Shown here is a 315-nucleotide RNA from Pullulanibacillus pueri, a member of the family "glmS glucosamine-6-phosphate activated ribozyme aptamer". A search with the family's covariance model found it, with a score of 77 bits. The source organism's lineage runs through Bacteria, Bacillati, Bacillota, Sporolactobacillaceae and Pullulanibacillus. Rfam classes the family as a riboswitch. Its family is annotated with regulation of gene expression and catalytic activity in the Gene Ontology.
[Rfam]
RNA sequence: GAGAAUAACAAAGCGCCAGGACUGCUUUAAUAAAAAGAAUUAAAAAAGGAGGACGAACAGGGCCAAGAAGUUUGAGACGCGACAGUCACGAGUAACGGAGCGUACAUGAGGUACGUGAGUAGCGGAGUGGCAACGCAACGAAAAAAUUCGACGGCAAUGUUCCCCGGACUUUUUAAUUAUCUAUAUAAAGGCAGUUGACGAGGAAGAGGGUUAAUCGAGAUAUUCGGCGGAUACCUCUCGGGCACAUCACUCCCGGAAGCUAAGACUUCAAAACAGUGGGGCAACCUGCUGCACAAGAGUCUUGCGGUGAUCCAU
Numbered sequence: 001g002a003g004a005a006u007a008a009c010a011a012a013g014c015g016c017c018a019g020g021a022c023u024g025c026u027u028u029a030a031u032a033a034a035a036a037g038a039a040u041u042a043a044a045a046a047a048g049g050a051g052g053a054c055g056a057a058c059a060g061g062g063c064c065a066a067g068a069a070g071u072u073u074g075a076g077a078c079g080c081g082a083c084a085g086u087c088a089c090g091a092g093u094a095a096c097g098g099a100g101c102g103u104a105c106a107u108g109a110g111g112u113a114c115g116u117g118a119g120u121a122g123c124g125g126a127g128u129g130g131c132a133a134c135g136c137a138a139c140g141a142a143a144a145a146a147u148u149c150g151a152c153g154g155c156a157a158u159g160u161u162c163c164c165c166g167g168a169c170u171u172u173u174u175a176a177u178u179a180u181c182u183a184u185a186u187a188a189a190g191g192c193a194g195u196u197g198a199c200g201a202g203g204a205a206g207a208g209g210g211u212u213a214a215u216c217g218a219g220a221u222a223u224u225c226g227g228c229g230g231a232u233a234c235c236u237c238u239c240g241g242g243c244a245c246a247u248c249a250c251u252c253c254c255g256g257a258a259g260c261u262a263a264g265a266c267u268u269c270a271a272a273a274c275a276g277u278g279g280g281g282c283a284a285c286c287u288g289c290u291g292c293a294c295a296a297g298a299g300u301c302u303u304g305c306g307g308u309g310a311u312c313c314a315u
Base pairs, nucleotide, nucleotide: 020196021195022194023193024192025191026190027189028187205238206237207236208235209234215227216226217225218224239255240254241253242252261304262303263302264301265300266299274291275290276289277288278287279286280285